[Rfam]
RNA: Group I catalytic intron
Organism: Hymenoscyphus fraxineus
RNA sequence: AUUACGUAAUUAGGGAAACUUUAGUUACUGUCAUAAUGAACUUAUGGCUAUAAACCUUCAAAUUGCGGGAAGUCCCUAAAGCAAUUUCAACCAAACUAACCUAGUAAUAGAGUUUGUGGCACAGGUAAUGACUCGUGGUAUGGUAAAAUCGAAAUUGAUUAUGCUUAUUUUUAUAAUAAGGAUAAAUGGGUAAUCCGCAGCCAAGCAGCUGAUAUAAUAUAUUAGGUGUGCAGUUCAUCGACUAAAUGUAGGUUGGCUGUAUGGAUAAAGAUCCAUAUAGGCUUAAGAUAUAGUCAAGCCCCAUUCGAAAGAAUGCA
Number, nucleotide and partner (000 for none) at each position: 001a000002u000003u000004a000005c000006g000007u000008a000009a000010u000011u000012a020013g019014g000015g000016a000017a000018a000019c013020u012021u000022u000023a000024g000025u000026u000027a000028c000029u000030g000031u000032c000033a000034u000035a000036a000037u000038g000039a000040a000041c000042u000043u000044a000045u000046g000047g000048c000049u000050a000051u000052a000053a254054a253055c252056c251057u250058u000059c248060a247061a000062a000063u000064u199065g198066c197067g196068g195069g194070a000071a000072g000073u000074c190075c189076c188077u000078a000079a000080a000081g000082c000083a000084a000085u000086u000087u000088c000089a000090a000091c000092c000093a000094a000095a000096c000097u000098a000099a000100c000101c000102u000103a000104g000105u000106a000107a000108u000109a000110g000111a000112g000113u000114u000115u000116g000117u000118g000119g000120c000121a000122c000123a000124g000125g000126u000127a000128a000129u000130g000131a000132c000133u000134c000135g000136u000137g000138g000139u000140a000141u000142g000143g000144u000145a000146a000147a000148a000149u000150c000151g000152a000153a000154a000155u000156u000157g000158a000159u000160u000161a000162u000163g000164c000165u000166u000167a000168u000169u000170u000171u000172u000173a000174u000175a000176a000177u000178a000179a000180g000181g000182a000183u000184a000185a000186a000187u000188g076189g075190g074191u000192a000193a000194u069195c068196c067197g066198c065199a064200g234201c233202c000203a000204a000205g229206c228207a227208g000209c000210u000211g000212a220213u000214a000215u000216a000217a000218u000219a000220u212221a000222u000223u000224a000225g000226g000227u207228g206229u205230g000231c000232a000233g201234u200235u000236c000237a000238u296239c000240g295241a294242c293243u292244a291245a000246a000247u060248g059249u000250a057251g056252g055253u054254u053255g000256g282257c281258u280259g000260u277261a276262u275263g274264g273265a000266u000267a000268a000269a000270g000271a000272u000273c264274c263275a262276u261277a260278u000279a000280g258281g257282c256283u000284u000285a000286a000287g000288a000289u000290a000291u244292a243293g242294u241295c240296a238297a000298g000299c000300c000301c000302c315303a314304u313305u312306c311307g000308a000309a000310a000311g306312a305313a304314u303315g302316c000317a000